Shown here is a 74-nucleotide sequence from Bagarius yarrelli, a member of the family "mir-126 microRNA precursor family". A search with the family's covariance model found it, with a score of 59 bits. The family has 37 seed sequences and 1,407 matches in Rfam 15.1. Pairs were carried over by alignment from the consensus structure, which was predicted with RNAalifold. Lineage of the source: Eukaryota > Chordata > Vertebrata > Osteoglossocephalai > Bagarius.
RNA sequence: UCACAGUGCAUUAUUACUCACGGUACGAGUUUGAGGCAGGCCUAGCGCGUACCAAAAGUAAUAAUGAGCUGGAA
Numbered sequence: 001u002c003a004c005a006g007u008g009c010a011u012u013a014u015u016a017c018u019c020a021c022g023g024u025a026c027g028a029g030u031u032u033g034a035g036g037c038a039g040g041c042c043u044a045g046c047g048c049g050u051a052c053c054a055a056a057a058g059u060a061a062u063a064a065u066g067a068g069c070u071g072g073a074a
Base pairs, nucleotide, nucleotide: 009066010065011064012063013062014061015060016059017058018057022053023052024051025050026049027048029046